Shown here is an 87-nucleotide RNA sequence from Nicotiana sylvestris, a member of the family "Small nucleolar RNA R11/Z151". Its family is annotated with RNA processing and nucleolus in the Gene Ontology. The match comes from Rfam's covariance-model search (93 bits).
RNA sequence: GGGCUUAUGAUGAUAAAUCAAAUUAUCUUAGCGGAUUUCAGUGAGGUUUAAUUAUCAAUGAUCUGAAUGUUACACACACUGAGGCCC
Numbered sequence: 001g002g003g004c005u006u007a008u009g010a011u012g013a014u015a016a017a018u019c020a021a022a023u024u025a026u027c028u029u030a031g032c033g034g035a036u037u038u039c040a041g042u043g044a045g046g047u048u049u050a051a052u053u054a055u056c057a058a059u060g061a062u063c064u065g066a067a068u069g070u071u072a073c074a075c076a077c078a079c080u081g082a083g084g085c086c087c
Base pairs, nucleotide, nucleotide: 001087002086003085004084005083
Lineage of the source: Eukaryota > Mesangiospermae > Pentapetalae > Nicotianeae > Nicotiana. A reference for the family is Barneche et al. (2001), "Identification of 66 box C/D snoRNAs in Arabidopsis thaliana: extensive gene duplications generated multiple isoforms predicting new ribosomal RNA 2'-O-methylation sites", J Mol Biol.